This 139-nucleotide sequence from Morella rubra belongs to the Rfam family "small nucleolar RNA snoR137". NCBI's taxonomy places the organism under Eukaryota, Viridiplantae, Tracheophyta, Pentapetalae, Morella. By type it is an H/ACA-box small nucleolar RNA.
RNA sequence: GUUGCUUCUAAUAAAAAGAUGAGUACCCUAUUAAUAAGUUGGUCAUUCAUUCCUAGAAGCAUAUAUUAAAGAAAAUGCCAGGCUUUAAACAACAUGAUGUCCUUCUGUUGCACUGUGUUACCUGUCUCUUGGUAAAUGU
Numbered sequence: 001g002u003u004g005c006u007u008c009u010a011a012u013a014a015a016a017a018g019a020u021g022a023g024u025a026c027c028c029u030a031u032u033a034a035u036a037a038g039u040u041g042g043u044c045a046u047u048c049a050u051u052c053c054u055a056g057a058a059g060c061a062u063a064u065a066u067u068a069a070a071g072a073a074a075a076u077g078c079c080a081g082g083c084u085u086u087a088a089a090c091a092a093c094a095u096g097a098u099g100u101c102c103u104u105c106u107g108u109u110g111c112a113c114u115g116u117g118u119u120a121c122c123u124g125u126c127u128c129u130u131g132g133u134a135a136a137u138g139u
Base pairs, nucleotide, nucleotide: 003061004060005059006058007057008056020049021048022047023046024045025043026042027041077133078132079131080130081129082128091119092118093117095115096114098112099111